[Rfam]
RNA sequence: UACUUAUUAAGAGAAGUUGAGGGAUUUGGCCCUGUGACGCUUCAGCAACCACUUAUUGAUAAGUACGGUGCUACAACCAACCAUUGCGGAUGAUAAGUU
Numbered sequence: 001u002a003c004u005u006a007u008u009a010a011g012a013g014a015a016g017u018u019g020a021g022g023g024a025u026u027u028g029g030c031c032c033u034g035u036g037a038c039g040c041u042u043c044a045g046c047a048a049c050c051a052c053u054u055a056u057u058g059a060u061a062a063g064u065a066c067g068g069u070g071c072u073a074c075a076a077c078c079a080a081c082c083a084u085u086g087c088g089g090a091u092g093a094u095a096a097g098u099u
Stems, first nucleotide, its partner, number of pairs: 002098007013043005021032003026080004044072004049068002051064004076091001081088001
RNA: SAM riboswitch aptamer (S box leader)